[Rfam]
RNA sequence: GGCGGCACGCCUAACACAUGCAAGUCGAACGAGGGCAUUCUUUCGGGGAUGUUCCUAGUGGCGGACGGGUGAGUAACGCGUGGGAAUCUGCCUGAUAGUGGGGGAUAACUGUUGGAAACGACAGCUAAUACCGCAUACGCUGGAGAGUAGAAAAGAGAAGCAGGAAAGGAAAGGUACCGAGGGAAAUCUUUUGGUAUUUCUGUUUUCUGAUUGGGUGAAGGAAAGGGCCUUGAAAACCUUUUCGUUUUCCUCAAGAGAGAAGUUGGGAAAGGGUGUCAAUUCUUUCCGGAUUUCUUAUGGGGGAGAGGUUUUGAAAACCUUUCUGCAUUGUUUCUUUUUUCUCCUCUCCAGGAAAGAUUUAUCGCUAUCAGAUGAGCCCGCGUCAGAUUAGGUAGUUGGUGAGGUAAAGGCUCACCAAGCCAAUGAUCUGUAGCUGGUCUGAGAGGAUGACCAGCCACACUGGGACUGAGACACGGCCCAGACUCCUACGGGAGGCAGCAGUGGGGAAUCUUGGACAAUGGGGGCAACCCUGAUCCAGCGAUGCCGCGUGAAUGAAGAAGGCCUUAGGGUUGUAAAGUUCUUU
Numbered sequence: 001g002g003c004g005g006c007a008c009g010c011c012u013a014a015c016a017c018a019u020g021c022a023a024g025u026c027g028a029a030c031g032a033g034g035g036c037a038u039u040c041u042u043u044c045g046g047g048g049a050u051g052u053u054c055c056u057a058g059u060g061g062c063g064g065a066c067g068g069g070u071g072a073g074u075a076a077c078g079c080g081u082g083g084g085a086a087u088c089u090g091c092c093u094g095a096u097a098g099u100g101g102g103g104g105a106u107a108a109c110u111g112u113u114g115g116a117a118a119c120g121a122c123a124g125c126u127a128a129u130a131c132c133g134c135a136u137a138c139g140c141u142g143g144a145g146a147g148u149a150g151a152a153a154a155g156a157g158a159a160g161c162a163g164g165a166a167a168g169g170a171a172a173g174g175u176a177c178c179g180a181g182g183g184a185a186a187u188c189u190u191u192u193g194g195u196a197u198u199u200c201u202g203u204u205u206u207c208u209g210a211u212u213g214g215g216u217g218a219a220g221g222a223a224a225g226g227g228c229c230u231u232g233a234a235a236a237c238c239u240u241u242u243c244g245u246u247u248u249c250c251u252c253a254a255g256a257g258a259g260a261a262g263u264u265g266g267g268a269a270a271g272g273g274u275g276u277c278a279a280u281u282c283u284u285u286c287c288g289g290a291u292u293u294c295u296u297a298u299g300g301g302g303g304a305g306a307g308g309u310u311u312u313g314a315a316a317a318c319c320u321u322u323c324u325g326c327a328u329u330g331u332u333u334c335u336u337u338u339u340u341c342u343c344c345u346c347u348c349c350a351g352g353a354a355a356g357a358u359u360u361a362u363c364g365c366u367a368u369c370a371g372a373u374g375a376g377c378c379c380g381c382g383u384c385a386g387a388u389u390a391g392g393u394a395g396u397u398g399g400u401g402a403g404g405u406a407a408a409g410g411c412u413c414a415c416c417a418a419g420c421c422a423a424u425g426a427u428c429u430g431u432a433g434c435u436g437g438u439c440u441g442a443g444a445g446g447a448u449g450a451c452c453a454g455c456c457a458c459a460c461u462g463g464g465a466c467u468g469a470g471a472c473a474c475g476g477c478c479c480a481g482a483c484u485c486c487u488a489c490g491g492g493a494g495g496c497a498g499c500a501g502u503g504g505g506g507a508a509u510c511u512u513g514g515a516c517a518a519u520g521g522g523g524g525c526a527a528c529c530c531u532g533a534u535c536c537a538g539c540g541a542u543g544c545c546g547c548g549u550g551a552a553u554g555a556a557g558a559a560g561g562c563c564u565u566a567g568g569g570u571u572g573u574a575a576a577g578u579u580c581u582u583u
Stems, first nucleotide, its partner, number of pairs: 002547006008540002010505001015503003019500003024062003029059002033054001035052007069458003078383007087375002092371007100134001102132002109124006140351008149342015356363002384430003391421003396418008433455004437448004460481005483494004511537001513536003519532005550580004560571004

The record is a 583-nucleotide part of an RNA from Caedimonas varicaedens, which matches "Bacterial small subunit ribosomal RNA" in Rfam. The literature on the family includes a 2001 paper in Science by Yusupov et al., "Crystal structure of the ribosome at 5.5 A resolution". Rfam 15.1 lists 42,628 matches to the family in 10,626 species. It scores 1557 bits against the family's covariance model.